[Rfam]
The family of this 102-nucleotide RNA from Streptococcus sobrinus is "Streptococcus sRNA SpF25". The literature on the family includes a 2012 paper in PLoS Pathog by Mann et al., "Control of virulence by small RNAs in Streptococcus pneumoniae". By type it is a small RNA.
RNA sequence: ACAUGAGGUAGCCUUUCUAUUAUUUUUUUGUCAACUAUAUGUUAUCAAGACUACCUAUGUCAAGCAAAAAGCAACGGCAUCAAAACCGUUGCUUUUUCGUUG
Numbered sequence: 001a002c003a004u005g006a007g008g009u010a011g012c013c014u015u016u017c018u019a020u021u022a023u024u025u026u027u028u029u030g031u032c033a034a035c036u037a038u039a040u041g042u043u044a045u046c047a048a049g050a051c052u053a054c055c056u057a058u059g060u061c062a063a064g065c066a067a068a069a070a071g072c073a074a075c076g077g078c079a080u081c082a083a084a085a086c087c088g089u090u091g092c093u094u095u096u097u098c099g100u101u102g
Base pairs, nucleotide, nucleotide: 004057007055008054009053010052011051016050017049018048020047022045023044028039061102062101063100066097067096068095069094071092072091073090074089075088076087077086